Background: This 52-nucleotide RNA sequence from Aquibacillus koreensis belongs to the Rfam family "Streptococcus sRNA SpF59 (ldcC RNA)". The family's RNA type in Rfam is small RNA. It scores 43 bits against the family's covariance model. On this family, see Mann et al., PLoS Pathog 2012: "Control of virulence by small RNAs in Streptococcus pneumoniae".
RNA sequence: UGACCACUUCUAUUCAGGAGUUAAGGCAGCGGUUCGCCGGGUCAAACGCCGA
Number, nucleotide and partner (000 for none) at each position: 001u044002g043003a042004c041005c040006a021007c020008u019009u018010c017011u016012a000013u000014u000015c000016a011017g010018g009019a008020g007021u006022u000023a000024a000025g000026g000027c000028a000029g000030c000031g000032g000033u000034u000035c000036g000037c000038c000039g000040g005041g004042u003043c002044a001045a000046a000047c000048g000049c000050c000051g000052a000